[Rfam]
RNA sequence: CCGUGCUAGACGGGGAGGUAGCGGAUCCUUGUACUCGCAACCCGCUUUAGCGAGGUGGAAUUCCUGCAUGAGGGCAGCGUUUGUGGAGCGGCUAGGGCUAAUUGUGAUGAGGUCUGGGUCUUACGCAACAGAGCACUUCGAACUGUGUCAGGUCCUGACGGAAGCAGCACUAAGGAGUAAACUCUGUGUGCCGUAAGGUUGCCUAGGUUGAGCAAUGAAUCCUGGAUUCGUCCGGAAGCGUCUGUUCGAGUAAAGGUGCACGG
Numbered sequence: 001c002c003g004u005g006c007u008a009g010a011c012g013g014g015g016a017g018g019u020a021g022c023g024g025a026u027c028c029u030u031g032u033a034c035u036c037g038c039a040a041c042c043c044g045c046u047u048u049a050g051c052g053a054g055g056u057g058g059a060a061u062u063c064c065u066g067c068a069u070g071a072g073g074g075c076a077g078c079g080u081u082u083g084u085g086g087a088g089c090g091g092c093u094a095g096g097g098c099u100a101a102u103u104g105u106g107a108u109g110a111g112g113u114c115u116g117g118g119u120c121u122u123a124c125g126c127a128a129c130a131g132a133g134c135a136c137u138u139c140g141a142a143c144u145g146u147g148u149c150a151g152g153u154c155c156u157g158a159c160g161g162a163a164g165c166a167g168c169a170c171u172a173a174g175g176a177g178u179a180a181a182c183u184c185u186g187u188g189u190g191c192c193g194u195a196a197g198g199u200u201g202c203c204u205a206g207g208u209u210g211a212g213c214a215a216u217g218a219a220u221c222c223u224g225g226a227u228u229c230g231u232c233c234g235g236a237a238g239c240g241u242c243u244g245u246u247c248g249a250g251u252a253a254a255g256g257u258g259c260a261c262g263g
Base pairs, nucleotide, nucleotide: 001263002262003261004260005259006258010056011055012030013029014028015027016026019023034054035053036052037051038050063256064255065254068251069250072247073246074245075244076243078240079239080238081237082236084234085233086232087231090228091227092225093224094223095222096221097220101216103214104213105212111209112208113207114206115205116204117203118202119201120197121196122195123194124193125192126188127187129186130185131184132183133182135178136177137176138175139174145170146169147168148167153162154161155160
This 263-nucleotide RNA from Desulfitobacterium dichloroeliminans belongs to the Rfam family "Bacterial large signal recognition particle RNA". By type it is a non-coding RNA gene. It scores 181 bits against the family's covariance model. Rfam describes the family as follows. The signal recognition particle (SRP) is a universally conserved ribonucleoprotein involved in the co-translational targeting of proteins to membranes. The literature on the family includes a 2003 paper in Nucleic Acids Res by Rosenblad et al., "SRPDB: Signal Recognition Particle Database".